[Rfam]
Nucleotides: 134
Base pairs, nucleotide, nucleotide: 001058002057003056004055007050008049010047012045013044014043015042016041017040019037020036021035022034023033070126072124073123074122075121076120077119081116082115085111086110088108090106091105092104093103
Number, partner (000 for none) and nucleotide at each position: 001058g002057c003056c004055c005000u006000g007050u008049g009000g010047u011000u012045a013044c014043u015042g016041g017040a018000c019037a020036c021035u022034g023033c024000c025000u026000g027000c028000u029000c030000c031000a032000u033023g034022c035021a036020g037019u038000g039000c040017u041016u042015c043014a044013g045012u046000u047010g048000g049008u050007a051000a052000a053000a054000c055004g056003g057002g058001c059000c060000c061000a062000c063000a064000g065000u066000g067000a068000c069000u070126c071000u072124g073123u074122g075121a076120u077119u078000u079000a080000c081116g082115c083000a084000g085111g086110g087000a088108g089000u090106c091105u092104g093103u094000g095000a096000u097000c098000c099000g100000u101000g102000a103093g104092c105091a106090g107000c108088c109000u110086c111085c112000a113000c114000a115082g116081c117000c118000c119077g120076g121075u122074c123073a124072c125000a126070g127000g128000c129000a130000c131000a132000c133000c134000c

Background:
A member of the RNA family "Small nucleolar RNA SNORA84" from Malurus cyaneus, 134 nucleotides long. A search with the family's covariance model found it, with a score of 98 bits. Taxonomically the source falls in Malurus cyaneus (Eukaryota, Opisthokonta, Craniata, Passeriformes). Pairs were carried over by alignment from the consensus structure, which was predicted with WAR.